[Rfam]
RNA sequence: CGUGUGGUGUCUGGCACUGGACCAGAUGGCGACACGGCCCACUGAGGG
Numbered sequence: 001c002g003u004g005u006g007g008u009g010u011c012u013g014g015c016a017c018u019g020g021a022c023c024a025g026a027u028g029g030c031g032a033c034a035c036g037g038c039c040c041a042c043u044g045a046g047g048g
Base pairs, nucleotide, nucleotide: 001036002035003034004033005032007030008029011025012024013023014022015020
Record summary: This 48-nucleotide RNA from Gallaecimonas pentaromativorans belongs to the Rfam family "L31-Gammaproteobacteria ribosomal protein leader". By type it is a cis-regulatory leader. NCBI's taxonomy places the organism under Bacteria, Pseudomonadota, Gammaproteobacteria, Enterobacterales, Gallaecimonas. The family's consensus secondary structure is taken from published work.